[Rfam]
Shown here is an 84-nucleotide RNA from Veronia nyctiphanis, a member of the family "Pseudomonas sRNA P9". This small RNA (sRNA) was computationally identified in the genome of the opportunistic pathogen Pseudomonas aeruginosa and its expression verified by northern blot analysis. P9 appears to be conserved in several Pseudomonas species in addition to Bordetella spp. In both Pseudomonas and Bordetella spp P9 appears to be located upstream of a predicted threonine dehydratase gene. For this family Rfam cites "Identification of 17 Pseudomonas aeruginosa sRNAs and prediction of sRNA-encoding genes in 10 diverse pathogens using the bioinformatic tool sRNAPredict2" (Livny et al., Nucleic Acids Res, 2006). Taxonomically the source falls in Veronia (Bacteria, Gammaproteobacteria, Vibrionales, Vibrionaceae). It is annotated as a non-coding RNA gene.

RNA sequence: CGAAUUAUUAGCAUUAUUUCUUUCGAAAUGGUGGGAUAGUUUGCGUAACUAACAAAUUAGAAACCCGCCCAAGAGGCGGGUUUU
Numbered sequence: 001c002g003a004a005u006u007a008u009u010a011g012c013a014u015u016a017u018u019u020c021u022u023u024c025g026a027a028a029u030g031g032u033g034g035g036a037u038a039g040u041u042u043g044c045g046u047a048a049c050u051a052a053c054a055a056a057u058u059a060g061a062a063a064c065c066c067g068c069c070c071a072a073g074a075g076g077c078g079g080g081u082u083u084u
Stems, first nucleotide, its partner, number of pairs: 012033008061083009
Dot-bracket structure: ...........((((((((......))))))))...........................(((((((((.....))))))))).